[Rfam]
RNA: Small nucleolar RNA snoR111
Organism: Senna tora
RNA sequence: UACAAUAGAAUGGAGACUGUUAAAGUGUCUCUGACUCUCUGCCAUGGAAUAACAGAGAGGCAUAGUGAUAAUUGACAAGUCAUUGUUUCGGUCGUCAUUAUUGGCGAAUCGAUUGUUCCUCGUUUACAA
Numbered sequence: 001u002a003c004a005a006u007a008g009a010a011u012g013g014a015g016a017c018u019g020u021u022a023a024a025g026u027g028u029c030u031c032u033g034a035c036u037c038u039c040u041g042c043c044a045u046g047g048a049a050u051a052a053c054a055g056a057g058a059g060g061c062a063u064a065g066u067g068a069u070a071a072u073u074g075a076c077a078a079g080u081c082a083u084u085g086u087u088u089c090g091g092u093c094g095u096c097a098u099u100a101u102u103g104g105c106g107a108a109u110c111g112a113u114u115g116u117u118c119c120u121c122g123u124u125u126a127c128a129a
Base pairs, nucleotide, nucleotide: 007038008037009036011034013031014030015029016028017027074125075124076122078120079119082113083112084111085110092107093106094105095104096103097102